[Rfam]
RNA: transfer-messenger RNA
Organism: Paucidesulfovibrio gracilis
RNA sequence: GGGGGCGCCCUGGUUUCGACGGAGAUGCUGAAGCCAAGGUCGCAGGUCGGGGAUGGCCGUUGGCCCCGUCAUCAAUUCGGCCAGGCACACAAAUGCCAACAAUGACUACGAAUACGCUAUGGCUGCCUAGUUUAACUAAGCAACUGUAGUUCCAGGGCAUGACCCUGGCGGCUCUCCGGGCCUACGCCCGAUAAACCGGAGUUGUCGACGACACCCCUCGGGCUAGCGUUGUACGGUUGCACGUCCCGUAUCGUGCGAAAUCUUAGACGAGCUGGUCACAUCGGCGCCUGUUCGUGGGCAACCUUUGUGGCGAGAAUAAAAACACGGACUAAGCCUGUAGAAGCCUUGCGCGGAUCGUUUUCGGACGGGGGUUCGAUUCCCCCCGCCUCCACCA
Number, nucleotide and partner (000 for none) at each position: 001g390002g389003g388004g387005g386006c385007g384008c000009c000010c000011u000012g000013g000014u000015u000016u000017c000018g000019a000020c363021g362022g361023a360024g359025a358026u357027g356028c000029u354030g000031a000032a000033g351034c350035c348036a347037a346038g345039g344040u343041c000042g000043c337044a336045g335046g334047u333048c068049g067050g066051g065052g064053a000054u000055g082056g081057c080058c079059g078060u000061u000062g000063g000064c052065c051066c050067c049068g048069u000070c000071a000072u000073c000074a000075a000076u000077u000078c059079g058080g057081c056082c055083a000084g000085g000086c000087a000088c000089a000090c000091a000092a000093a000094u000095g000096c000097c000098a000099a000100c000101a000102a000103u000104g000105a000106c000107u000108a000109c000110g000111a000112a000113u000114a000115c000116g000117c000118u148119a147120u146121g145122g144123c000124u142125g141126c140127c000128u000129a000130g000131u000132u000133u000134a000135a000136c000137u000138a000139a000140g126141c125142a124143a000144c122145u121146g120147u119148a118149g000150u000151u000152c000153c000154a000155g000156g000157g000158c000159a000160u000161g000162a000163c000164c000165c000166u000167g000168g000169c204170g203171g202172c201173u200174c199175u000176c000177c198178g197179g196180g000181c000182c000183u195184a000185c000186g223187c222188c221189c220190g219191a218192u000193a000194a000195a183196c179197c178198g177199g174200a173201g172202u171203u170204g169205u000206c000207g000208a000209c000210g000211a000212c000213a000214c000215c000216c000217c000218u191219c190220g189221g188222g187223c186224u000225a000226g000227c000228g000229u258230u257231g256232u255233a254234c253235g252236g251237u250238u000239g000240c000241a000242c000243g273244u000245c271246c000247c269248g268249u000250a237251u236252c235253g234254u233255g232256c231257g230258a229259a000260a000261u000262c000263u000264u000265a000266g000267a000268c248269g247270a000271g245272c000273u243274g000275g311276u310277c309278a308279c307280a306281u000282c000283g303284g302285c000286g299287c298288c297289u000290g329291u328292u327293c326294g323295u322296g000297g288298g287299c286300a000301a000302c284303c283304u000305u000306u280307g279308u278309g277310g276311c275312g000313a000314g000315a000316a000317u000318a000319a000320a000321a000322a295323c294324a000325c000326g293327g292328a291329c290330u000331a000332a000333g047334c046335c045336u044337g043338u000339a000340g000341a000342a000343g040344c039345c038346u037347u036348g035349c000350g034351c033352g000353g000354a029355u000356c027357g026358u025359u024360u023361u022362c021363g020364g000365a000366c000367g383368g382369g381370g380371g379372u000373u000374c000375g000376a000377u000378u000379c371380c370381c369382c368383c367384c007385g006386c005387c004388u003389c002390c001391a000392c000393c000394a000